[Rfam]
RNA sequence: CACCCAUGUUUACUACUACUUGUUUCCUCUUUCCACCUGAGGCUUCGAGUAUUUUGCGAUGCAUGGAAAAUCAUUUUUUAACACAAUGACCAGGUUUCUUUUCAUUUUAUUCAAUAAAUGAAAAGGUACAGAGUCAUUUGACAAUU
Numbered sequence: 001c002a003c004c005c006a007u008g009u010u011u012a013c014u015a016c017u018a019c020u021u022g023u024u025u026c027c028u029c030u031u032u033c034c035a036c037c038u039g040a041g042g043c044u045u046c047g048a049g050u051a052u053u054u055u056g057c058g059a060u061g062c063a064u065g066g067a068a069a070a071u072c073a074u075u076u077u078u079u080a081a082c083a084c085a086a087u088g089a090c091c092a093g094g095u096u097u098c099u100u101u102u103c104a105u106u107u108u109a110u111u112c113a114a115u116a117a118a119u120g121a122a123a124a125g126g127u128a129c130a131g132a133g134u135c136a137u138u139u140g141a142c143a144a145u146u
Stems, first nucleotide, its partner, number of pairs: 004066006017051006028040002085138006094129002098125008
Dot-bracket structure: ...((((((.......((((((.....((.........)).....)))))).........))))))..................((((((...((..((((((((............))))))))..))...))))))........

The record is a 146-nucleotide RNA from Caenorhabditis brenneri, which matches "Caenorhabditis snoRNA ceN80" in Rfam.
Gene Ontology terms of the family: RNA processing and nucleolus.
Pairs were carried over by alignment from the consensus structure, which was predicted with RNAalifold.
NCBI's taxonomy places the organism under Eukaryota, Bilateria, Chromadorea, Rhabditomorpha, Caenorhabditis.
It scores 117 bits against the family's covariance model.
By type it is an H/ACA-box small nucleolar RNA.